[Rfam]
RNA sequence: AGGCAUCGACAGGGGAGCAGCCACUACAGCUGCUGAGAGUGCUCCAGCAGACCCUCGAACCUGAUUCCAGAUCAUACUGGCGGAGGAAGUCGUCAAACUCUCCAC
Dot-bracket structure: ......((((((((..(((((.......)))))......(((....)))..))))....(((....((((......))))...)))..)))).............
RNA: TPP riboswitch aptamer (THI element)